About this RNA: The family of this 490-nucleotide part of an RNA from Ramalina farinacea is "Eukaryotic large subunit ribosomal RNA". A reference for the family is Yusupov et al. (2001), "Crystal structure of the ribosome at 5.5 A resolution", Science. Its family is annotated with ribosome and structural constituent of ribosome in the Gene Ontology.
[Rfam]
RNA sequence: GGUAGUGAGUCACCCUUAUUCCUCCAUGCCAUGGAAUUUUAUGCUAAUCGGAUUCUAGGUAGCAAAUACUCAAAUGAGAACUUUGAGGACUGAAGUGGGGAAAGGUUCCGUGUGAACAGCAGUUGGACACGGGUUAGUCGACCCUAAGCGAUAGGGAAACUCCGUUUCAAAGUGCGCACUUGUGCGCCGUCGCGCGAAAGGGAAGCUGGUUAAUAUUCCAGCACUUGAAUGAGGAUUCUCCGCGGCAACGCAACUGAAGGUGGAGACGUCGGCGGGGGCCCCGGGAAGAGUUCUCUUUUCUUCUUAACGGUCCAUCACCCUGAAAUCGGUUUGUCCGGAGCUAGGGUUUCACGGCCGGUAGAGCGCCGCACUUUUGUGGCGUCCAGGUGUGCUCCCGACGACCCUUGAAAAUCCACCGGAAGGAAUAGCUUUCUCGUUAAGUCGUACUCAUAACCGCAGCAGGUCUCCAAGGUGAACAGCCUCUAGUUGA
Numbered sequence: 001g002g003u004a005g006u007g008a009g010u011c012a013c014c015c016u017u018a019u020u021c022c023u024c025c026a027u028g029c030c031a032u033g034g035a036a037u038u039u040u041a042u043g044c045u046a047a048u049c050g051g052a053u054u055c056u057a058g059g060u061a062g063c064a065a066a067u068a069c070u071c072a073a074a075u076g077a078g079a080a081c082u083u084u085g086a087g088g089a090c091u092g093a094a095g096u097g098g099g100g101a102a103a104g105g106u107u108c109c110g111u112g113u114g115a116a117c118a119g120c121a122g123u124u125g126g127a128c129a130c131g132g133g134u135u136a137g138u139c140g141a142c143c144c145u146a147a148g149c150g151a152u153a154g155g156g157a158a159a160c161u162c163c164g165u166u167u168c169a170a171a172g173u174g175c176g177c178a179c180u181u182g183u184g185c186g187c188c189g190u191c192g193c194g195c196g197a198a199a200g201g202g203a204a205g206c207u208g209g210u211u212a213a214u215a216u217u218c219c220a221g222c223a224c225u226u227g228a229a230u231g232a233g234g235a236u237u238c239u240c241c242g243c244g245g246c247a248a249c250g251c252a253a254c255u256g257a258a259g260g261u262g263g264a265g266a267c268g269u270c271g272g273c274g275g276g277g278g279c280c281c282c283g284g285g286a287a288g289a290g291u292u293c294u295c296u297u298u299u300c301u302u303c304u305u306a307a308c309g310g311u312c313c314a315u316c317a318c319c320c321u322g323a324a325a326u327c328g329g330u331u332u333g334u335c336c337g338g339a340g341c342u343a344g345g346g347u348u349u350c351a352c353g354g355c356c357g358g359u360a361g362a363g364c365g366c367c368g369c370a371c372u373u374u375u376g377u378g379g380c381g382u383c384c385a386g387g388u389g390u391g392c393u394c395c396c397g398a399c400g401a402c403c404c405u406u407g408a409a410a411a412u413c414c415a416c417c418g419g420a421a422g423g424a425a426u427a428g429c430u431u432u433c434u435c436g437u438u439a440a441g442u443c444g445u446a447c448u449c450a451u452a453a454c455c456g457c458a459g460c461a462g463g464u465c466u467c468c469a470a471g472g473u474g475a476a477c478a479g480c481c482u483c484u485a486g487u488u489g490a
Base pairs, nucleotide, nucleotide: 015087016086017085018084088488089487090486091485097468098467099466100465103448104447108132109131110130111129112128113127117125118124139444140443141442143201144200148195149194150166151165152164154163155162156161174187175186176185205222206221207220208219209218225440226439227438228437230436231435232434233433234432235430242251243250244249259417260416261415262414263413264412268402269401270400271399273397274396275395276394277393278392279391281387282386283384284304285303286302287301288300289299308357309356310355311354312353317347318346319345320344321343322342326338327337328336329335364381365380366379367378368377369376370375454463455462470482471481472480473479